RNA sequence: GAGCAGCUGGAGAGGGGGCCGUUACACUGUAAGAGAGUGAGUAGCAGGUCUCACAGUGAACCGGUCUCUUUCCCAGGGGCCAC
Numbered sequence: 001g002a003g004c005a006g007c008u009g010g011a012g013a014g015g016g017g018g019c020c021g022u023u024a025c026a027c028u029g030u031a032a033g034a035g036a037g038u039g040a041g042u043a044g045c046a047g048g049u050c051u052c053a054c055a056g057u058g059a060a061c062c063g064g065u066c067u068c069u070u071u072c073c074c075a076g077g078g079g080c081c082a083c
Stems, first nucleotide, its partner, number of pairs: 007076004015068007025058006033052003
Shown here is an 83-nucleotide sequence from Callorhinchus milii, a member of the family "mir-128 microRNA precursor family". On this family, see Chen et al., Genes Dev 2005: "The developmental miRNA profiles of zebrafish as determined by small RNA cloning".